[Rfam]
Nucleotides: 070
Base pairs, nucleotide, nucleotide: 004066007063008062009061010060013057014056015055018051019050020049021048022047023046025044026043027042
Number, partner (000 for none) and nucleotide at each position: 001000a002000a003000a004066a005000g006000u007063a008062c009061c010060c011000a012000a013057a014056c015055a016000c017000a018051a019050g020049c021048a022047c023046u024000g025044a026043c027042u028000u029000g030000a031000g032000u033000u034000a035000u036000g037000u038000a039000u040000u041000c042027a043026g044025u045000a046023a047022g048021u049020g050019c051018u052000a053000c054000u055015u056014g057013u058000u059000g060010g061009g062008g063007u064000u065000g066004u067000a068000u069000u070000g
Rfam assigns this 70-nucleotide sequence from Etheostoma spectabile to the family "miR-430 microRNA precursor family". The family's consensus secondary structure was predicted with RNAalifold. The literature on the family includes a 2005 paper in Science by Giraldez et al., "MicroRNAs regulate brain morphogenesis in zebrafish". The match comes from Rfam's covariance-model search (67 bits). Its Rfam clan is "mir-290 clan".